Overview
Mammalian CPEB3 ribozyme: a 77-nucleotide RNA sequence from Parnassius apollo. The match comes from Rfam's covariance-model search (46 bits). Lineage of the source: Eukaryota > Opisthokonta > Eumetabola > Aparaglossata > Parnassius.

RNA sequence: UUCAGUUAUCCUGAAGUCAUUGUAGAAGCGUGCUCGUCGCGACCCCUGCCAGCCCUUUUCAGGGCUGCAAUUCUACA
Numbered sequence: 001u002u003c004a005g006u007u008a009u010c011c012u013g014a015a016g017u018c019a020u021u022g023u024a025g026a027a028g029c030g031u032g033c034u035c036g037u038c039g040c041g042a043c044c045c046c047u048g049c050c051a052g053c054c055c056u057u058u059u060c061a062g063g064g065c066u067g068c069a070a071u072u073c074u075a076c077a
Stems, first nucleotide, its partner, number of pairs: 013046001016043003021077007028040003050067007